[Rfam]
RNA sequence: CCUACACCCAUAUGUGUAGGACUCCAAAAGAUCGCCAUUAAAUUUGGUAUAGAUCUCUAGAAAAGUUAUCACAUGGGUGUGGGACUUGACUUUUUUAGAGAUCUGUGCUAAAUUUAAUAGUGAUCCUUUGGGGUCCUACAUGUAUGAGUGUGGG
Numbered sequence: 001c002c003u004a005c006a007c008c009c010a011u012a013u014g015u016g017u018a019g020g021a022c023u024c025c026a027a028a029a030g031a032u033c034g035c036c037a038u039u040a041a042a043u044u045u046g047g048u049a050u051a052g053a054u055c056u057c058u059a060g061a062a063a064a065g066u067u068a069u070c071a072c073a074u075g076g077g078u079g080u081g082g083g084a085c086u087u088g089a090c091u092u093u094u095u096u097a098g099a100g101a102u103c104u105g106u107g108c109u110a111a112a113u114u115u116a117a118u119a120g121u122g123a124u125c126c127u128u129u130g131g132g133g134u135c136c137u138a139c140a141u142g143u144a145u146g147a148g149u150g151u152g153g154g
Stems, first nucleotide, its partner, number of pairs: 002153006009146005015140014030125003034121002037118032069082005
The record is a 154-nucleotide RNA sequence from Amborella trichopoda, which matches "MIR8565 microRNA precursor family" in Rfam. Gene Ontology terms of the family: RISC complex and miRNA-mediated post-transcriptional gene silencing.